S-element: a 68-nucleotide RNA from Brucella anthropi. The family has 29 seed sequences and 231 matches in Rfam 15.1. Rfam classes the family as a cis-regulatory element. For this family Rfam cites "Two discrete elements are required for the replication of a repABC plasmid: an antisense RNA and a stem-loop structure" (Venkova-Canova et al., Mol Microbiol, 2004). Rfam links the family to the GO terms translation regulator activity and mRNA transcription. Rfam's curators write: This family represents a group of S-elements from p42d and related plasmids. The S-element has multiple functions and is believed to act as a negative regulator of repC transcription, be required for efficient replication and act as a translational enhancer of repC. Taxonomically the source falls in Brucella anthropi (Bacteria, Pseudomonadota, Alphaproteobacteria, Hyphomicrobiales). The base pairs follow the family's consensus structure, which is taken from published work.

[Rfam]
RNA sequence: CGUCAAGAGUUUUCGGCGCCAUUUUGGCGAACAAAUUUCUUUUGCCUGUUGACAGGUAGAAAACGAUG
Numbered sequence: 001c002g003u004c005a006a007g008a009g010u011u012u013u014c015g016g017c018g019c020c021a022u023u024u025u026g027g028c029g030a031a032c033a034a035a036u037u038u039c040u041u042u043u044g045c046c047u048g049u050u051g052a053c054a055g056g057u058a059g060a061a062a063a064c065g066a067u068g
Stems, first nucleotide, its partner, number of pairs: 009064006018057003022054001024052004029047001032044004